[Rfam]
RNA: mir-29 microRNA precursor family
Organism: Branchiostoma floridae
RNA sequence: GGAAGCUGAUUUCAGUUGGUGCUAGAUAGAAGUCGGCGUUCUAGCACCAUAUGAAAUCAGUUAUCG
Numbered sequence: 001g002g003a004a005g006c007u008g009a010u011u012u013c014a015g016u017u018g019g020u021g022c023u024a025g026a027u028a029g030a031a032g033u034c035g036g037c038g039u040u041c042u043a044g045c046a047c048c049a050u051a052u053g054a055a056a057u058c059a060g061u062u063a064u065c066g
Stems, first nucleotide, its partner, number of pairs: 002065002005061010017049005023043004